[Rfam]
RNA sequence: ACACUGGAAGGGAGGUGAUCCGAGAAGUGAUUUCUUAUCGGACAAGUGAGGUGGCUCGCCGCUGAGGCGUCCCGACGGACCCGCAGCGAAUCCCACCGAGCUGCCGGGACCCGCAGGUGGUCGGACAUCGUCCAGCCGGCCAGCGCAGAUGCGCAGCCUGCGGGUCCUCUCAUA
Numbered sequence: 001a002c003a004c005u006g007g008a009a010g011g012g013a014g015g016u017g018a019u020c021c022g023a024g025a026a027g028u029g030a031u032u033u034c035u036u037a038u039c040g041g042a043c044a045a046g047u048g049a050g051g052u053g054g055c056u057c058g059c060c061g062c063u064g065a066g067g068c069g070u071c072c073c074g075a076c077g078g079a080c081c082c083g084c085a086g087c088g089a090a091u092c093c094c095a096c097c098g099a100g101c102u103g104c105c106g107g108g109a110c111c112c113g114c115a116g117g118u119g120g121u122c123g124g125a126c127a128u129c130g131u132c133c134a135g136c137c138g139g140c141c142a143g144c145g146c147a148g149a150u151g152c153g154c155a156g157c158c159u160g161c162g163g164g165u166c167c168u169c170u171c172a173u174a
Stems, first nucleotide, its partner, number of pairs: 014059001017056001019054001060088005066082002069080004106168013120140005

A member of the RNA family "Actinobacteria sRNA Ms_IGR-5" from Brachybacterium alimentarium, 174 nucleotides long. It scores 71 bits against the family's covariance model. The pairing is the family consensus, mapped onto this sequence. The family's RNA type in Rfam is small RNA.